[Rfam]
RNA sequence: CAUGCACAGGCAAUGGCACUGGAAGAAUUCACGGGUUACAUUACGAUAGUCCCGUGGUCUCUUAGUGGCAUCACUGGUGCUGG
Numbered sequence: 001c002a003u004g005c006a007c008a009g010g011c012a013a014u015g016g017c018a019c020u021g022g023a024a025g026a027a028u029u030c031a032c033g034g035g036u037u038a039c040a041u042u043a044c045g046a047u048a049g050u051c052c053c054g055u056g057g058u059c060u061c062u063u064a065g066u067g068g069c070a071u072c073a074c075u076g077g078u079g080c081u082g083g
Stems, first nucleotide, its partner, number of pairs: 004080004009075002013071003017067002020064003023060001025059002029057006
RNA: mir-263 microRNA precursor family
Organism: Trichoplusia ni